[Rfam]
RNA sequence: CCGGAACUCGCACCCAUCCACGCGUGGCAGGAGCGGGGGACCCAGGUAGUACGCCGACCCCACCAGGGGCCGGCUCGGGGUGAAGCCGUGUCAGCACACGGCCGGGCAUCUCCAGUCCGAACCCGACAGCUCACCUCGCAGGCGCCGGAGAGGAACAGU
Numbered sequence: 001c002c003g004g005a006a007c008u009c010g011c012a013c014c015c016a017u018c019c020a021c022g023c024g025u026g027g028c029a030g031g032a033g034c035g036g037g038g039g040a041c042c043c044a045g046g047u048a049g050u051a052c053g054c055c056g057a058c059c060c061c062a063c064c065a066g067g068g069g070c071c072g073g074c075u076c077g078g079g080g081u082g083a084a085g086c087c088g089u090g091u092c093a094g095c096a097c098a099c100g101g102c103c104g105g106g107c108a109u110c111u112c113c114a115g116u117c118c119g120a121a122c123c124c125g126a127c128a129g130c131u132c133a134c135c136u137c138g139c140a141g142g143c144g145c146c147g148g149a150g151a152g153g154a155a156c157a158g159u
Stems, first nucleotide, its partner, number of pairs: 001142002007031002033139006043077001078124003086101004104118004

Shown here is a 159-nucleotide RNA from Streptomyces solincola, a member of the family "c-di-AMP riboswitch aptamer (ydaO/yuaA leader)". Gene Ontology terms of the family: regulation of gene expression and cyclic-di-AMP binding.